[Rfam]
RNA sequence: CCGUCCGAGGGGCGCUGCAGCAGAUGGAGAACCGUUUCGAACCUGGCGAAGGUCGAAUCCGGUUCUCGCCUGUCAGGCUCGGAUGGGGCGUUUCCUCGAACGCAUCAACGGCGCCCAUUCGCA
Numbered sequence: 001c002c003g004u005c006c007g008a009g010g011g012g013c014g015c016u017g018c019a020g021c022a023g024a025u026g027g028a029g030a031a032c033c034g035u036u037u038c039g040a041a042c043c044u045g046g047c048g049a050a051g052g053u054c055g056a057a058u059c060c061g062g063u064u065c066u067c068g069c070c071u072g073u074c075a076g077g078c079u080c081g082g083a084u085g086g087g088g089c090g091u092u093u094c095c096u097c098g099a100a101c102g103c104a105u106c107a108a109c110g111g112c113g114c115c116c117a118u119u120c121g122c123a
Stems, first nucleotide, its partner, number of pairs: 002085007021072003025068002

The record is a 123-nucleotide sequence from Pseudomonas sp. BAY1663, which matches "SAH (S-adenosyl-L-homocysteine) riboswitch aptamer" in Rfam. Pairs were carried over by alignment from the consensus structure, which is taken from published work. NCBI's taxonomy places the organism under Bacteria, Pseudomonadota, Gammaproteobacteria, Pseudomonadaceae, Pseudomonas.